[Rfam]
RNA: COG2827 RNA
RNA sequence: GCUGGUGCUUUAUCAUAGAUACAGAUCUUUUUAGGUCCGGGCGGUGACGGCGCGUUUUGCGCAAUCGCCGUUUACAUA
Numbered sequence: 001g002c003u004g005g006u007g008c009u010u011u012a013u014c015a016u017a018g019a020u021a022c023a024g025a026u027c028u029u030u031u032u033a034g035g036u037c038c039g040g041g042c043g044g045u046g047a048c049g050g051c052g053c054g055u056u057u058u059g060c061g062c063a064a065u066c067g068c069c070g071u072u073u074a075c076a077u078a
Stems, first nucleotide, its partner, number of pairs: 022039001024037005040072008050062004
Dot-bracket structure: .....................(.(((((....))))).)((((((((..((((.....))))..))))))))......